[Rfam]
RNA sequence: CGGCGGGCCACGCGGUCCCAACGCCGCGCGCGCUCUCUGUGAGGAGAGACUGA
Numbered sequence: 001c002g003g004c005g006g007g008c009c010a011c012g013c014g015g016u017c018c019c020a021a022c023g024c025c026g027c028g029c030g031c032g033c034u035c036u037c038u039g040u041g042a043g044g045a046g047a048g049a050c051u052g053a
Stems, first nucleotide, its partner, number of pairs: 011028006033048006
Rfam assigns this 53-nucleotide sequence from Sphingomonas sp. AX6 to the family "serC leader". From the family's description: This family is a putative regulatory RNA structure that is found upstream of the serC-serA operon in some alpha-proteobacteria. Its family is annotated with regulation of gene expression in the Gene Ontology. It scores 41 bits against the family's covariance model. Taxonomically the source falls in Sphingomonas (Bacteria, Pseudomonadati, Alphaproteobacteria, Sphingomonadaceae). The base pairs follow the family's consensus structure. It is annotated as a cis-regulatory leader. The literature on the family includes a 2005 paper in Genome Biol by Corbino et al., "Evidence for a second class of S-adenosylmethionine riboswitches and other regulatory RNA motifs in alpha-proteobacteria".